[Rfam]
The family of this 124-nucleotide sequence is "Bacteriophage Diversity-Generating Retroelement RNA".
Rfam classes the family as a small RNA.
RNA sequence: GCGUUGAGACGGUUAAGGCCGCUCAAGCGAUCAUUAUAAAAUGGUCAGCCGCACCAACCUGUUUCGGCGAAUACACUAAGAGAUUCACAGUAGAAGAGUAGCAAUAGCGAAAAUCGAACGUGAU
Numbered sequence: 001g002c003g004u005u006g007a008g009a010c011g012g013u014u015a016a017g018g019c020c021g022c023u024c025a026a027g028c029g030a031u032c033a034u035u036a037u038a039a040a041a042u043g044g045u046c047a048g049c050c051g052c053a054c055c056a057a058c059c060u061g062u063u064u065c066g067g068c069g070a071a072u073a074c075a076c077u078a079a080g081a082g083a084u085u086c087a088c089a090g091u092a093g094a095a096g097a098g099u100a101g102c103a104a105u106a107g108c109g110a111a112a113a114u115c116g117a118a119c120g121u122g123a124u
Stems, first nucleotide, its partner, number of pairs: 001028002004026005012019002060069003083124001085123004093115002101108002